The family of this 136-nucleotide RNA sequence from Canis lupus is "Small nucleolar RNA SNORA46".

[Rfam]
Nucleotides: 136
Stems, first nucleotide, its partner, number of pairs: 002059008014047004021041003027035001067131002070128002072125006079118002083114003086110004092104001
Number, partner (000 for none) and nucleotide at each position: 001000a002059g003058c004057a005056c006055u007054g008053u009052a010000u011000u012000g013000a014047a015046g016045c017044c018000u019000g020000u021041g022040g023039a024000a025000u026000a027035g028000a029000a030000u031000c032000g033000u034000c035027c036000c037000c038000a039023u040022u041021c042000u043000u044017g045016g046015u047014u048000a049000u050000g051000c052009u053008g054007u055006a056005g057004u058003g059002u060000g061000a062000a063000a064000g065000a066000a067131u068130u069000g070128c071127u072125g073124g074123c075122u076121c077120u078000c079118u080117g081000u082000u083114g084113c085112a086110c087109a088108g089107c090000c091000a092104a093000c094000u095000u096000u097000g098000u099000g100000c101000c102000a103000u104092u105000c106000u107089g108088c109087u110086g111000u112085u113084g114083c115000u116000g117080u118079a119000c120077g121076g122075a123074g124073u125072u126000a127071a128070g129000g130068a131067a132000u133000g134000u135000a136000a
From the family's description: ACA46 is a member of the H/ACA class of snoRNA that guide the sites of modification of uridines to pseudouridines.
The family's consensus secondary structure was predicted with RNAfold.
Its family is annotated with RNA processing and nucleolus in the Gene Ontology.
It is annotated as an H/ACA-box small nucleolar RNA.